[Rfam]
RNA sequence: GAGUUUUUUUAGGUUUUGAUUUUUAUUACAUCUUUGUACAAAAAAUCGAAACCUAAAGAAAAUG
Numbered sequence: 001g002a003g004u005u006u007u008u009u010u011a012g013g014u015u016u017u018g019a020u021u022u023u024u025a026u027u028a029c030a031u032c033u034u035u036g037u038a039c040a041a042a043a044a045a046u047c048g049a050a051a052c053c054u055a056a057a058g059a060a061a062a063u064g
Stems, first nucleotide, its partner, number of pairs: 004061021